The family of this 80-nucleotide RNA from Leptobrachium leishanense is "mir-1 microRNA precursor family".
NCBI's taxonomy places the organism under Eukaryota, Bilateria, Gnathostomata, Dipnotetrapodomorpha, Leptobrachium.
The family's consensus secondary structure was predicted with RNAalifold.
Nucleotides: 080
Base pairs, nucleotide, nucleotide: 007074008073009072010071011070012069013068014067015066016065017064018063019062020061021060022059023058024057025056028053029052030051031050032049
Number, partner (000 for none) and nucleotide at each position: 001000a002000g003000a004000g005000u006000g007074u008073c009072a010071a011070c012069a013068u014067a015066c016065a017064u018063c019062c020061u021060u022059a023058c024057a025056c026000a027000c028053u029052c030051a031050c032049a033000a034000a035000u036000a037000a038000u039000g040000u041000u042000u043000u044000u045000u046000a047000u048000u049032u050031g051030u052029g053028a054000g055000u056025g057024u058023g059022u060021a061020a062019g063018g064017a065016u066015g067014u068013a069012u070011g071010u072009u073008g074007a075000c076000a077000c078000a079000c080000u
Record summary
Rfam describes the family as follows. This family represents the microRNA (miRNA) mir-1 family. miRNAs are transcribed as ~70nt precursors (modelled here) and subsequently processed by the Dicer enzyme to give a ~22nt product. In this case the mature sequence comes from the 3' arm of the precursor.